Shown here is a 140-nucleotide RNA from Paracidovorax citrulli, a member of the family "radC RNA".
Rfam 15.1 lists 500 matches to the family in 142 species.
The base pairs follow the family's consensus structure, which is taken from published work.
Rfam classes the family as a cis-regulatory element.

[Rfam]
RNA sequence: AUGCUGGAUGCAUGUGUAGCUGACGCCGUCAGCGCCAUGCCAGCAGCCUGGAUCUCAGGGCUGCCGCGGGACACGUCCUGCGCGAUCCACCAGUCCGCUUCGCAUCGGUCCGCGGACGAGCGCCCUCGUGGCGUCGAUGC
Numbered sequence: 001a002u003g004c005u006g007g008a009u010g011c012a013u014g015u016g017u018a019g020c021u022g023a024c025g026c027c028g029u030c031a032g033c034g035c036c037a038u039g040c041c042a043g044c045a046g047c048c049u050g051g052a053u054c055u056c057a058g059g060g061c062u063g064c065c066g067c068g069g070g071a072c073a074c075g076u077c078c079u080g081c082g083c084g085a086u087c088c089a090c091c092a093g094u095c096c097g098c099u100u101c102g103c104a105u106c107g108g109u110c111c112g113c114g115g116a117c118g119a120g121c122g123c124c125c126u127c128g129u130g131g132c133g134u135c136g137a138u139g140c
Base pairs, nucleotide, nucleotide: 011039012038013037014036019033020032021031022030023029024028043064044063045062046061047060048059051087052086053085054084065082066081067080068079069078070077071076112140113139114138120134121133122132123131124130